[Rfam]
Nucleotides: 082
Stems, first nucleotide, its partner, number of pairs: 012079001013046006047065003051061003066078003
Number, partner (000 for none) and nucleotide at each position: 001000a002000u003000a004000a005000u006000g007000a008000u009000a010000c011000u012079u013046c014045c015044g016043u017042c018041c019000g020000g021000u022000c023000a024000u025000a026000a027000g028000u029000u030000a031000g032000a033000a034000g035000c036000g037000g038000u039000g040000a041018g042017g043016g044015c045014g046013g047065c048064g049063g050000c051061a052060u053059g054000a055000g056000a057000a058000c059053c060052a061051u062000g063049c064048c065047g066078a067077g068076g069000u070000g071000a072000g073000a074000g075000u076068c077067c078066u079012a080000u081000g082000a
The record is an 82-nucleotide RNA sequence, which matches "pemK RNA" in Rfam. It is one of the family's seed sequences.